[Rfam]
Shown here is a 125-nucleotide RNA sequence from Brassica napus, a member of the family "MIR9563 microRNA precursor family". The organism belongs to Brassica, within Eukaryota.

RNA sequence: GGAAUAUAAGAACUCAUCUCUUAAUUUUUAACUAAAAAAGUUAAGAACCGGCUCUUAAAACUCUUAUUUAAGAAUCGAAUCUUAACUUUUUUAGUUAAAAGUUAAGAGACGCGUUCUUAUAUUCC
Numbered sequence: 001g002g003a004a005u006a007u008a009a010g011a012a013c014u015c016a017u018c019u020c021u022u023a024a025u026u027u028u029u030a031a032c033u034a035a036a037a038a039a040g041u042u043a044a045g046a047a048c049c050g051g052c053u054c055u056u057a058a059a060a061c062u063c064u065u066a067u068u069u070a071a072g073a074a075u076c077g078a079a080u081c082u083u084a085a086c087u088u089u090u091u092u093a094g095u096u097a098a099a100a101g102u103u104a105a106g107a108g109a110c111g112c113g114u115u116c117u118u119a120u121a122u123u124c125c
Stems, first nucleotide, its partner, number of pairs: 001125013015111001017109023041085006